[Rfam]
RNA sequence: UGCAGGCAAGCGCGGAACUGUAGAGGUCGCCGACAGGCGGCAGCCCGUUGCGGGUGGGAUCCUCGAAUCCGGGGCCUGCAACCGU
Numbered sequence: 001u002g003c004a005g006g007c008a009a010g011c012g013c014g015g016a017a018c019u020g021u022a023g024a025g026g027u028c029g030c031c032g033a034c035a036g037g038c039g040g041c042a043g044c045c046c047g048u049u050g051c052g053g054g055u056g057g058g059a060u061c062c063u064c065g066a067a068u069c070c071g072g073g074g075c076c077u078g079c080a081a082c083c084g085u
Stems, first nucleotide, its partner, number of pairs: 001080007011072001013071004021066001023064003026041006044054003
RNA: DUF3800-VII RNA